Shown here is a 193-nucleotide RNA from Serratia ficaria, a member of the family "Lysine riboswitch aptamer".
RNA sequence: CAAGCCAGAAGAGGCGCGUCGCCCAGGUAGAGUGUCAGAGGAGCCGUAUUCCGACGACGACACAGGAGGGGGAGCGACGCCGAGGUAGGAUGAUGCGCGGCGAUCAUCGUAUCGGCUACAGGGGCUGAAUCCCCUGGGUUGUCACCAGAACCGCCCCGUAGGGCGGUUGGCAAGGUGGGGCGCUUCUGGGUGU
Numbered sequence: 001c002a003a004g005c006c007a008g009a010a011g012a013g014g015c016g017c018g019u020c021g022c023c024c025a026g027g028u029a030g031a032g033u034g035u036c037a038g039a040g041g042a043g044c045c046g047u048a049u050u051c052c053g054a055c056g057a058c059g060a061c062a063c064a065g066g067a068g069g070g071g072g073a074g075c076g077a078c079g080c081c082g083a084g085g086u087a088g089g090a091u092g093a094u095g096c097g098c099g100g101c102g103a104u105c106a107u108c109g110u111a112u113c114g115g116c117u118a119c120a121g122g123g124g125c126u127g128a129a130u131c132c133c134c135u136g137g138g139u140u141g142u143c144a145c146c147a148g149a150a151c152c153g154c155c156c157c158g159u160a161g162g163g164c165g166g167u168u169g170g171c172a173a174g175g176u177g178g179g180g181c182g183c184u185u186c187u188g189g190g191u192g193u
Base pairs, nucleotide, nucleotide: 006188007187008186009185010184011183016080017079018078019077020076021075022074024072032063033062034061035060036059084113085112086111087110089108090107091106092105093104094103114140115139116138117137119136120135121134122133123132124131142178143177144176145175146174

It scores 94 bits against the family's covariance model.
Rfam's curators write: Riboswitches are metabolite binding domains within certain messenger RNAs that serve as precision sensors for their corresponding targets.